Shown here is a 112-nucleotide RNA, a member of the family "Enterobacteria rnk leader". For this family Rfam cites "Premature terminator analysis sheds light on a hidden world of bacterial transcriptional attenuation" (Naville and Gautheret, Genome Biol, 2010). Rfam classes the family as a cis-regulatory leader. The match comes from Rfam's covariance-model search (54 bits).
[Rfam]
RNA sequence: CACGGGUAAAGUCAAAAUGUGACUUAUCUCGCUUUCAACUGAAGGCCAAGCUCAGUAUCAUCGUUCCAACAUGAACAACCCUCGCCGGUUUCGGUGGGGGUUUUUCUUUGUA
Numbered sequence: 001c002a003c004g005g006g007u008a009a010a011g012u013c014a015a016a017a018u019g020u021g022a023c024u025u026a027u028c029u030c031g032c033u034u035u036c037a038a039c040u041g042a043a044g045g046c047c048a049a050g051c052u053c054a055g056u057a058u059c060a061u062c063g064u065u066c067c068a069a070c071a072u073g074a075a076c077a078a079c080c081c082u083c084g085c086c087g088g089u090u091u092c093g094g095u096g097g098g099g100g101u102u103u104u105u106c107u108u109u110g111u112a
Stems, first nucleotide, its partner, number of pairs: 015035003019032004077102011